[Rfam]
RNA sequence: CUCGGCCUGUAAUGCAGUCCUAUUUAUGUUACAAAGUGAAAUAGAAACUUCGUUCCACCGCUUUACACAGCGUCGUCCUGAAGCAUUCAACGUUCUUUUGUCCAUAAGUAAUUCAUUAUGCUGGCUUAAGUGCGCAAUCUAGCGUGACAUCUAUAUUAUUUUCAGGAGACACAUCAUGUCUAAAGCAACUGGUAUCGUUAAGUGGUUCAACGACGAGAAAGGUUUUGGUUUCAUCACUCAAGACAACGGUGCUGACGUUUUCGUUCACUUCCGUGCUAUCACUGGUGAAGGCUUCAAAUCUCUGGCUGAAGGCCAAAAAGUAGCAUUCGACGUUGAGCAAGGCCAGAAAGGUCCUCAAGCUGCUAACGUAGAAAAAAUCUAAUUUUAGUUAGAUUAAAGAAUUUUUAAAGGGCGUUUUUAACGCCCUUUUUUAU
Numbered sequence: 001c002u003c004g005g006c007c008u009g010u011a012a013u014g015c016a017g018u019c020c021u022a023u024u025u026a027u028g029u030u031a032c033a034a035a036g037u038g039a040a041a042u043a044g045a046a047a048c049u050u051c052g053u054u055c056c057a058c059c060g061c062u063u064u065a066c067a068c069a070g071c072g073u074c075g076u077c078c079u080g081a082a083g084c085a086u087u088c089a090a091c092g093u094u095c096u097u098u099u100g101u102c103c104a105u106a107a108g109u110a111a112u113u114c115a116u117u118a119u120g121c122u123g124g125c126u127u128a129a130g131u132g133c134g135c136a137a138u139c140u141a142g143c144g145u146g147a148c149a150u151c152u153a154u155a156u157u158a159u160u161u162u163c164a165g166g167a168g169a170c171a172c173a174u175c176a177u178g179u180c181u182a183a184a185g186c187a188a189c190u191g192g193u194a195u196c197g198u199u200a201a202g203u204g205g206u207u208c209a210a211c212g213a214c215g216a217g218a219a220a221g222g223u224u225u226u227g228g229u230u231u232c233a234u235c236a237c238u239c240a241a242g243a244c245a246a247c248g249g250u251g252c253u254g255a256c257g258u259u260u261u262c263g264u265u266c267a268c269u270u271c272c273g274u275g276c277u278a279u280c281a282c283u284g285g286u287g288a289a290g291g292c293u294u295c296a297a298a299u300c301u302c303u304g305g306c307u308g309a310a311g312g313c314c315a316a317a318a319a320g321u322a323g324c325a326u327u328c329g330a331c332g333u334u335g336a337g338c339a340a341g342g343c344c345a346g347a348a349a350g351g352u353c354c355u356c357a358a359g360c361u362g363c364u365a366a367c368g369u370a371g372a373a374a375a376a377a378u379c380u381a382a383u384u385u386u387a388g389u390u391a392g393a394u395u396a397a398a399g400a401a402u403u404u405u406u407a408a409a410g411g412g413c414g415u416u417u418u419u420a421a422c423g424c425c426c427u428u429u430u431u432u433a434u
Stems, first nucleotide, its partner, number of pairs: 004020002007017003029241002035238004044232002052230001054228002058222002062220002071215002074212003080208002083206002088178001094169007103120003132151001180192003244335005254262002265323001267321004274315002276312002280305001284301001287300002340355003358378001361374001364371001383400003386396004407429010

The record is a 434-nucleotide RNA from Photobacterium ganghwense, which matches "cspA thermoregulator" in Rfam. Rfam classes the family as an RNA thermoregulator. A reference for the family is Giuliodori et al. (2010), "The cspA mRNA is a thermosensor that modulates translation of the cold-shock protein CspA", Mol Cell. The match comes from Rfam's covariance-model search (103 bits).